Bacterial RNase P class A: a 355-nucleotide RNA sequence from Pseudolysobacter antarcticus. NCBI's taxonomy places the organism under Bacteria, Pseudomonadota, Lysobacterales, Rhodanobacteraceae, Pseudolysobacter.
[Rfam]
RNA sequence: GGAGUCGGCCGGACAGUCGCGCGAUGCGCAAGCAUUUCGAGGAAAGUCCGGGCUCCAUAGGGCAGGGUGCCAGGUAACGCCUGGGCAGUGUGAACUGACGGCCAGUGCAACAGAAAGCAAACCGCCGAUGGCCGCGCAAGCGGAUCAGGUAAGGGUGAAACGGUGCGGUAAGAGCGCACCGCAUGCGGGGUCAACGCCGCAUGGCAUGGUAAACCCCACCCGGAGCAAGACCAAAUAGGGGAGCUAUGACGCGGCCCGCGUCGCUCCCGGGUUGGUCGCUUGAGCCUGACGGCGACGUCAGGCCUAGACGAAUGACUGUUCACGACAGGACCCGGCUUACAGGCCGGCUCCGCAC
Numbered sequence: 001g002g003a004g005u006c007g008g009c010c011g012g013a014c015a016g017u018c019g020c021g022c023g024a025u026g027c028g029c030a031a032g033c034a035u036u037u038c039g040a041g042g043a044a045a046g047u048c049c050g051g052g053c054u055c056c057a058u059a060g061g062g063c064a065g066g067g068u069g070c071c072a073g074g075u076a077a078c079g080c081c082u083g084g085g086c087a088g089u090g091u092g093a094a095c096u097g098a099c100g101g102c103c104a105g106u107g108c109a110a111c112a113g114a115a116a117g118c119a120a121a122c123c124g125c126c127g128a129u130g131g132c133c134g135c136g137c138a139a140g141c142g143g144a145u146c147a148g149g150u151a152a153g154g155g156u157g158a159a160a161c162g163g164u165g166c167g168g169u170a171a172g173a174g175c176g177c178a179c180c181g182c183a184u185g186c187g188g189g190g191u192c193a194a195c196g197c198c199g200c201a202u203g204g205c206a207u208g209g210u211a212a213a214c215c216c217c218a219c220c221c222g223g224a225g226c227a228a229g230a231c232c233a234a235a236u237a238g239g240g241g242a243g244c245u246a247u248g249a250c251g252c253g254g255c256c257c258g259c260g261u262c263g264c265u266c267c268c269g270g271g272u273u274g275g276u277c278g279c280u281u282g283a284g285c286c287u288g289a290c291g292g293c294g295a296c297g298u299c300a301g302g303c304c305u306a307g308a309c310g311a312a313u314g315a316c317u318g319u320u321c322a323c324g325a326c327a328g329g330a331c332c333c334g335g336c337u338u339a340c341a342g343g344c345c346g347g348c349u350c351c352g353c354a355c
Base pairs, nucleotide, nucleotide: 001351002350003349004348005347006346007345008344009343010342011340012320013319014318015317016316017315018314020039021038023036024035025034026033027032044338045337046336048335049334050333051332052331053225054224055223056222060257061256062255063254065221066220067219068218069217070084071083072082073081074080085099086097087096088095089094100216101215105214106213107210108209122154123153124150125149126148130145132143133142134141135140162180163179164178165177166176167175181205182203183202184201185200186199187197189195229277230276231275232274239268240267241266242265243264244263248262249261250260251259252258284303285302286301287300288299289298290297291296
The match comes from Rfam's covariance-model search (318 bits).